[Rfam]
RNA sequence: AGAACGGCCAUAGCAGAAGCACUCACAUCGUGGCCCUGUCAGAGUAACAAAUCUGCGAAUUCUGCU
Numbered sequence: 001a002g003a004a005c006g007g008c009c010a011u012a013g014c015a016g017a018a019g020c021a022c023u024c025a026c027a028u029c030g031u032g033g034c035c036c037u038g039u040c041a042g043a044g045u046a047a048c049a050a051a052u053c054u055g056c057g058a059a060u061u062c063u064g065c066u
Stems, first nucleotide, its partner, number of pairs: 006035004012066007019031002040055004
Record summary: Mammalian CPEB3 ribozyme: a 66-nucleotide RNA from Alligator mississippiensis. Its family is annotated with RNA nuclease activity in the Gene Ontology.